[Rfam]
RNA sequence: GAAGUCCGGUCCGGGAAGGGGGUAGCGCCCGCCCGGUAGCGAGUGUUGCGGGACCAUCGGUGACGAUGGUCUUGAAGCGUACACAGCGAGACGACGAGGACUGUAUUGAGCUUCGAAAGCUUCUUACCGUGGAGGCCGAGGCGUUACAAACCGCAGCAGGCAACAUGUGCGGGACCGUUCUGCGAGGGACCGUCGCUCCACCGGAGUCUGAGACCA
Numbered sequence: 001g002a003a004g005u006c007c008g009g010u011c012c013g014g015g016a017a018g019g020g021g022g023u024a025g026c027g028c029c030c031g032c033c034c035g036g037u038a039g040c041g042a043g044u045g046u047u048g049c050g051g052g053a054c055c056a057u058c059g060g061u062g063a064c065g066a067u068g069g070u071c072u073u074g075a076a077g078c079g080u081a082c083a084c085a086g087c088g089a090g091a092c093g094a095c096g097a098g099g100a101c102u103g104u105a106u107u108g109a110g111c112u113u114c115g116a117a118a119g120c121u122u123c124u125u126a127c128c129g130u131g132g133a134g135g136c137c138g139a140g141g142c143g144u145u146a147c148a149a150a151c152c153g154c155a156g157c158a159g160g161c162a163a164c165a166u167g168u169g170c171g172g173g174a175c176c177g178u179u180c181u182g183c184g185a186g187g188g189a190c191c192g193u194c195g196c197u198c199c200a201c202c203g204g205a206g207u208c209u210g211a212g213a214c215c216a
Stems, first nucleotide, its partner, number of pairs: 012035004019030003023185001025183002037089001039087002043084004047079002049074011107210001108208001110207006129201006135161003141154003166195002169193004175187002
Group II catalytic intron D1-D4-6: a 216-nucleotide RNA from Skermanella aerolata. It scores 156 bits against the family's covariance model. Taxonomically the source falls in Skermanella (Bacteria, Pseudomonadota, Alphaproteobacteria, Azospirillaceae). Rfam 15.1 lists 1,617 matches to the family in 661 species. A reference for the family is Chu et al. (2001), "Control of branch-site choice by a group II intron", EMBO J.